[Rfam]
RNA: mir-208 microRNA precursor family
RNA sequence: UCCGACCAACAAGCUUUUUGCUCGUCUUAUACGCGUGCAUCAGGUAUAACCCGAGCCAAAAGCUUGCCUGUCACAGG
Numbered sequence: 001u002c003c004g005a006c007c008a009a010c011a012a013g014c015u016u017u018u019u020g021c022u023c024g025u026c027u028u029a030u031a032c033g034c035g036u037g038c039a040u041c042a043g044g045u046a047u048a049a050c051c052c053g054a055g056c057c058a059a060a061a062g063c064u065u066g067c068c069u070g071u072c073a074c075a076g077g
Base pairs, nucleotide, nucleotide: 004072005071006070011065012064013063014062015061016060017059018058020056023053024052027049028048029047030046031045032044